[Rfam]
RNA sequence: UUUUAUUAGUCGGGGAACCUUUUGGUUGAGAUCGCAUUGCGAACCCGUUGAACCUGAUUCAGUUAAUACUGACGUAGGGAACUAAUAGUCUUCACUG
Numbered sequence: 001u002u003u004u005a006u007u008a009g010u011c012g013g014g015g016a017a018c019c020u021u022u023u024g025g026u027u028g029a030g031a032u033c034g035c036a037u038u039g040c041g042a043a044c045c046c047g048u049u050g051a052a053c054c055u056g057a058u059u060c061a062g063u064u065a066a067u068a069c070u071g072a073c074g075u076a077g078g079g080a081a082c083u084a085a086u087a088g089u090c091u092u093c094a095c096u097g
Stems, first nucleotide, its partner, number of pairs: 006085005011047004017026003033041003053078004059072004
TPP riboswitch aptamer (THI element): a 97-nucleotide RNA from Psychromonas sp. psych-6C06. The organism belongs to Psychromonas, within Bacteria. Its family is annotated with thiamine pyrophosphate binding in the Gene Ontology. Vitamin B(1) in its active form thiamin pyrophosphate (TPP) is an essential coenzyme that is synthesised by coupling of pyrimidine and thiazole moieties in bacteria. The previously detected thiamin-regulatory element, thi box was extended, resulting in a new, highly conserved RNA secondary structure, the THI element, which is widely distributed in eubacteria and also occurs in some archaea. Analysis of operon structures identified a large number of new candidate thiamin-regulated genes, mostly transporters, in various prokaryotic organisms. The THI element is a riboswitch that directly binds to TPP to regulate gene expression through a variety of mechanisms in archaea, bacteria and eukaryotes. through a variety of mechanisms in archaea, bacteria and eukaryotes.